Rfam assigns this 79-nucleotide RNA from Pollutimonas thiosulfatoxidans to the family "putative aminoglycoside riboswitch / attI site". Pairs were carried over by alignment from the consensus structure, which is taken from published work. Rfam's curators write: Conserved RNA structure found upstream of the bacterial aminoglycosides antibiotic-resistant genes: aminoglycoside acetyl transferase (AAC) and aminoglycoside adenyl transferase (AAD). It has putative short open reading frame (ORF) that encode leader peptide upstream of the resistance gene. 75 nucleotide long sequence from the first ribosome binding site (SD1) up to the coding sequence was shown to have the regulatory role, and it was considered the minima functional RNA. Aminoglycosides bind to specific regions of AAC/AAD 5' leader and induce change in the RNA structure. The drug binding induces expression of the resistance protein. On this family, see Jia et al., Cell 2013: "Riboswitch control of aminoglycoside antibiotic resistance". The family's RNA type in Rfam is cis-regulatory element. The source organism's lineage runs through Bacteria, Pseudomonadati, Betaproteobacteria, Alcaligenaceae and Pollutimonas.

[Rfam]
RNA sequence: GGAGCAGCAACGAUGUUACGCAGCAGGGCAGUCGCCCUAAAACAAAGUUAAACAUCAUGAGGGAAGCGGUGAUCGCCGA
Numbered sequence: 001g002g003a004g005c006a007g008c009a010a011c012g013a014u015g016u017u018a019c020g021c022a023g024c025a026g027g028g029c030a031g032u033c034g035c036c037c038u039a040a041a042a043c044a045a046a047g048u049u050a051a052a053c054a055u056c057a058u059g060a061g062g063g064a065a066g067c068g069g070u071g072a073u074c075g076c077c078g079a
Base pairs, nucleotide, nucleotide: 004076006017008015009014020056023053026037027036028035029034038050039049040048059073061067
Dot-bracket structure: ...(.(.((....)).)..(..(..((((....))))(((.......)))..)..)..(.(.....).....)..)...